Rfam assigns this 193-nucleotide sequence from Talaromyces marneffei to the family "U2 spliceosomal RNA".

[Rfam]
RNA sequence: UUAGCUCUCUUUGCCUUUUGGCUUAGAUCAAGUGUAGUAUCUGUUCUUUUCAGUUUAAUCUCUGAAAGUGUUCUAAGGAACACAACAUUGAUUAUUCUCAUUUUUGGAUCGCGCACUGAAGUCUCUGUGCUUGCACAUGCUUCGGUGCACUGUGUCCUUGGUCUUACACUACCACCAAGUGACGCGAAUACUU
Numbered sequence: 001u002u003a004g005c006u007c008u009c010u011u012u013g014c015c016u017u018u019u020g021g022c023u024u025a026g027a028u029c030a031a032g033u034g035u036a037g038u039a040u041c042u043g044u045u046c047u048u049u050u051c052a053g054u055u056u057a058a059u060c061u062c063u064g065a066a067a068g069u070g071u072u073c074u075a076a077g078g079a080a081c082a083c084a085a086c087a088u089u090g091a092u093u094a095u096u097c098u099c100a101u102u103u104u105u106g107g108a109u110c111g112c113g114c115a116c117u118g119a120a121g122u123c124u125c126u127g128u129g130c131u132u133g134c135a136c137a138u139g140c141u142u143c144g145g146u147g148c149a150c151u152g153u154g155u156c157c158u159u160g161g162u163c164u165u166a167c168a169c170u171a172c173c174a175c176c177a178a179g180u181g182a183c184g185c186g187a188a189u190a191c192u193u
Base pairs, nucleotide, nucleotide: 008027009026010025013022014021015020048067049066050065051064052063053062068083069082070081071080072079073078113148114147115146116145117144118143119142120141126137127136128135129134151186152185153184154183155182156181157179158178159177160176161175162174
Dot-bracket structure: .......(((..(((....)))..)))....................((((((........))))))((((((....)))))).............................((((((((.....((((....))))...))))))))..((((((((((((...........)))))).)))))).......